A member of the RNA family "Molybdenum/Tungsten riboswitch aptamer (Moco RNA motif)" from Desulforamulus ruminis, 119 nucleotides long. For this family Rfam cites "in molybdenum cofactor and tungsten cofactor metabolism" (Regulski et al., Mol Microbiol, 2008). The family's consensus secondary structure is taken from published work. Lineage of the source: Bacteria > Bacillota > Clostridia > Desulforamulus > Desulforamulus ruminis. Gene Ontology terms of the family: molybdenum ion binding, tungstate binding and regulation of gene expression.
RNA sequence: UCAACGAAUUACCUCCGAGCCUUGGAACCUGGGAUGGCAGAUUAUGGUUCCCAGGCCCAUAGGGUUUAUCUGGAAACGGGUAAGCCUCCCGUGCGGAAAGGAUGGUAAGUGUUUUUCUU
Numbered sequence: 001u002c003a004a005c006g007a008a009u010u011a012c013c014u015c016c017g018a019g020c021c022u023u024g025g026a027a028c029c030u031g032g033g034a035u036g037g038c039a040g041a042u043u044a045u046g047g048u049u050c051c052c053a054g055g056c057c058c059a060u061a062g063g064g065u066u067u068a069u070c071u072g073g074a075a076a077c078g079g080g081u082a083a084g085c086c087u088c089c090c091g092u093g094c095g096g097a098a099a100g101g102a103u104g105g106u107a108a109g110u111g112u113u114u115u116u117c118u119u
Stems, first nucleotide, its partner, number of pairs: 003113002006110001012104001014102003019056004024051006033043003062087011088096002